The record is a 222-nucleotide RNA sequence from Saccharomyces cerevisiae, which matches "Small nucleolar RNA snR31" in Rfam. Rfam links the family to the GO terms nucleolus and RNA processing. On this family, see Dandekar and Tollervey, Nucleic Acids Res 1993: "Identification and functional analysis of a novel yeast small nucleolar RNA". Its Rfam clan is "SNORA8 clan". It is one of the family's seed sequences.

RNA sequence: GAAGCAAAAUUACACCAUGAGUUCCUAUUAACGUCAGCCUCUUUUGUACUCAUAAUGUGGCUUCGGAUGUUUGAUGGGCGUUGCUUCAGUGCGUACGGCUCAUGGUAGAUUAAUUAUUAGAAAGAUGUAUCUCCAGCUGUUGAUAUUAGAGGGGGAAGCCUUUCUCUUUCACCUCGCCUUUUUAAACACCUGAUACAGUUGGUCAUGAUUCGUUCUACAUUU
Numbered sequence: 001g002a003a004g005c006a007a008a009a010u011u012a013c014a015c016c017a018u019g020a021g022u023u024c025c026u027a028u029u030a031a032c033g034u035c036a037g038c039c040u041c042u043u044u045u046g047u048a049c050u051c052a053u054a055a056u057g058u059g060g061c062u063u064c065g066g067a068u069g070u071u072u073g074a075u076g077g078g079c080g081u082u083g084c085u086u087c088a089g090u091g092c093g094u095a096c097g098g099c100u101c102a103u104g105g106u107a108g109a110u111u112a113a114u115u116a117u118u119a120g121a122a123a124g125a126u127g128u129a130u131c132u133c134c135a136g137c138u139g140u141u142g143a144u145a146u147u148a149g150a151g152g153g154g155g156a157a158g159c160c161u162u163u164c165u166c167u168u169u170c171a172c173c174u175c176g177c178c179u180u181u182u183u184a185a186a187c188a189c190c191u192g193a194u195a196c197a198g199u200u201g202g203u204c205a206u207g208a209u210u211c212g213u214u215c216u217a218c219a220u221u222u
Stems, first nucleotide, its partner, number of pairs: 015105008024078008032069004036062004044055002079097003082093003119216004124211002133202008149175004154170005